[Rfam]
RNA: U11 spliceosomal RNA
RNA sequence: AAAAAGGGCUUCUGCUGUGAUUGGCACAGAGGUGUCAGGUGACCUGGCGUCUUUGCGGAAUCGCUAUCAAGAGAUUUCGGAAGCACAAUUUUUAUAAACCGAGGCUGCUGGUAACCGGAAGUUCUAGCGCCUCA
Numbered sequence: 001a002a003a004a005a006g007g008g009c010u011u012c013u014g015c016u017g018u019g020a021u022u023g024g025c026a027c028a029g030a031g032g033u034g035u036c037a038g039g040u041g042a043c044c045u046g047g048c049g050u051c052u053u054u055g056c057g058g059a060a061u062c063g064c065u066a067u068c069a070a071g072a073g074a075u076u077u078c079g080g081a082a083g084c085a086c087a088a089u090u091u092u093u094a095u096a097a098a099c100c101g102a103g104g105c106u107g108c109u110g111g112u113a114a115c116c117g118g119a120a121g122u123u124c125u126a127g128c129g130c131c132u133c134a
Base pairs, nucleotide, nucleotide: 008084009083010082011081012080013026014025015024016023017022027055028054029053030052031051032050033049034048035047036046037045038044056079057078058077059076060075061074062073102132103131104130105129107128108127109126110125111124113123114122115121